[Rfam]
RNA sequence: UAUUAGGUGGGUGCAAAAGUAAUUGUGGUUUUUGACAUUAAAAGUAAUGGCAAAAGCCGCAAUAACUUUUGCACCGACCUAAUA
Numbered sequence: 001u002a003u004u005a006g007g008u009g010g011g012u013g014c015a016a017a018a019g020u021a022a023u024u025g026u027g028g029u030u031u032u033u034g035a036c037a038u039u040a041a042a043a044g045u046a047a048u049g050g051c052a053a054a055a056g057c058c059g060c061a062a063u064a065a066c067u068u069u070u071g072c073a074c075c076g077a078c079c080u081a082a083u084a
Stems, first nucleotide, its partner, number of pairs: 001084008010075011022063013036049005
Dot-bracket structure: ((((((((.(((((((((((.(((((((((((((.(((((....))))).))))))))))))).))))))))))).))))))))
Rfam assigns this 84-nucleotide RNA from Theropithecus gelada to the family "mir-548 microRNA precursor family". Rfam 15.1 lists 3,009 matches to the family in 27 species. The match comes from Rfam's covariance-model search (90 bits). Pairs were carried over by alignment from the consensus structure, which was predicted with WAR. Its family is annotated with RISC complex and miRNA-mediated post-transcriptional gene silencing in the Gene Ontology.